Source information:
Shown here is a 138-nucleotide sequence from Cavia porcellus, a member of the family "Small nucleolar RNA SNORA47". NCBI's taxonomy places the organism under Eukaryota, Teleostomi, Theria, Rodentia, Cavia. A reference for the family is Huttenhofer et al. (2001), "RNomics: an experimental approach that identifies 201 candidates for novel, small, non-messenger RNAs in mouse", EMBO J. The family's consensus secondary structure was predicted with WAR. Rfam classes the family as an H/ACA-box small nucleolar RNA.
[Rfam]
RNA sequence: UGGGGGUCUGAGAAAGUGAGGCAGCUCUGCACCAUGCUGCCUUCCACCGGUUAAGGCCUCCGACAGCAAACGGUUGCCCAGGCAGAGAAUGUCCCUUUGCUACCCUCAGAGGGACAGCACUGUCUUGGUCAACAUUUA
Numbered sequence: 001u002g003g004g005g006g007u008c009u010g011a012g013a014a015a016g017u018g019a020g021g022c023a024g025c026u027c028u029g030c031a032c033c034a035u036g037c038u039g040c041c042u043u044c045c046a047c048c049g050g051u052u053a054a055g056g057c058c059u060c061c062g063a064c065a066g067c068a069a070a071c072g073g074u075u076g077c078c079c080a081g082g083c084a085g086a087g088a089a090u091g092u093c094c095c096u097u098u099g100c101u102a103c104c105c106u107c108a109g110a111g112g113g114a115c116a117g118c119a120c121u122g123u124c125u126u127g128g129u130c131a132a133c134a135u136u137u138a
Stems, first nucleotide, its partner, number of pairs: 002061005016047003019042007081130003086126002089123003097117003101113001103112002